[Rfam]
RNA sequence: UUCUUAUCGAGAGAGACGGAGGGAUAUGGCCCUGUGAAGUCUCAGCAACCUUCAGCCCAGGCUGAAAAGGUGCUAAAUCCAACUGCUUAGCAGGAAGAUAAGAG
Numbered sequence: 001u002u003c004u005u006a007u008c009g010a011g012a013g014a015g016a017c018g019g020a021g022g023g024a025u026a027u028g029g030c031c032c033u034g035u036g037a038a039g040u041c042u043c044a045g046c047a048a049c050c051u052u053c054a055g056c057c058c059a060g061g062c063u064g065a066a067a068a069g070g071u072g073c074u075a076a077a078u079c080c081a082a083c084u085g086c087u088u089a090g091c092a093g094g095a096a097g098a099u100a101a102g103a104g
Stems, first nucleotide, its partner, number of pairs: 001104008013043005021032003027081003044074004049070002051066004078096001083093004
Shown here is a 104-nucleotide sequence from Acetoanaerobium sticklandii, a member of the family "SAM riboswitch aptamer (S box leader)". The SAM riboswitch is found upstream of a number of genes which code for proteins involved in methionine or cysteine biosynthesis in Gram-positive bacteria. The organism belongs to Acetoanaerobium sticklandii, within Bacteria.